About this RNA:
Shown here is a 71-nucleotide RNA from Danionella cerebrum, a member of the family "Small nucleolar RNA SNORD58". The literature on the family includes a 2002 paper in Mol Cell Biol by Galardi et al., "Purified box C/D snoRNPs are able to reproduce site-specific 2'-O-methylation of target RNA in vitro". By type it is a C/D-box small nucleolar RNA. Gene Ontology terms of the family: RNA processing and nucleolus. Its Rfam clan is "SNORD58 clan". Rfam 15.1 lists 2,484 matches to the family in 680 species. From the family's description: snoRNA U58 is found in introns 1, 3 and 6 of the ribosomal protein RPL17 gene in humans.
RNA sequence: GUACAGUGAUGAAAAUCUUAGGACACCUUUGGAGGCUUUGUUCAAUGAAAAUAAAUCAAAUUCUGAGUGCG
Numbered sequence: 001g002u003a004c005a006g007u008g009a010u011g012a013a014a015a016u017c018u019u020a021g022g023a024c025a026c027c028u029u030u031g032g033a034g035g036c037u038u039u040g041u042u043c044a045a046u047g048a049a050a051a052u053a054a055a056u057c058a059a060a061u062u063c064u065g066a067g068u069g070c071g
Stems, first nucleotide, its partner, number of pairs: 001070004